Overview: A member of the RNA family "c-di-AMP riboswitch aptamer (ydaO/yuaA leader)" from Paenibacillus rigui, 195 nucleotides long. The organism belongs to Paenibacillus, within Bacteria.
RNA sequence: CAAUUCUAGCCGCUUAAUUUCCUGGUCAUCAGGGAAACGGGGGAACCAAUUAAGCAAUGCCUGCACGGUGUGAGAGCCGUUGUACGCAUUGUUGGGGUGAAUCCUGAGGCUAUGCCUUCUUGGCAUAGCCUCAGGUAGGGCGACUCUCACCGUCCGAAUCCGUCAGCUAACCUCGUCAGCGUUGGUACAGCAAGC
Numbered sequence: 001c002a003a004u005u006c007u008a009g010c011c012g013c014u015u016a017a018u019u020u021c022c023u024g025g026u027c028a029u030c031a032g033g034g035a036a037a038c039g040g041g042g043g044a045a046c047c048a049a050u051u052a053a054g055c056a057a058u059g060c061c062u063g064c065a066c067g068g069u070g071u072g073a074g075a076g077c078c079g080u081u082g083u084a085c086g087c088a089u090u091g092u093u094g095g096g097g098u099g100a101a102u103c104c105u106g107a108g109g110c111u112a113u114g115c116c117u118u119c120u121u122g123g124c125a126u127a128g129c130c131u132c133a134g135g136u137a138g139g140g141c142g143a144c145u146c147u148c149a150c151c152g153u154c155c156g157a158a159u160c161c162g163u164c165a166g167c168u169a170a171c172c173u174c175g176u177c178a179g180c181g182u183u184g185g186u187a188c189a190g191c192a193a194g195c
Base pairs, nucleotide, nucleotide: 011181012180013179014178018036019035020034021033022032023031024030025029037176038175039174040173041172042171047094048093049092050091095161096160097159103135104134105133106132107131108130109129110128111127112126113125114124115123116122138155139154140153141152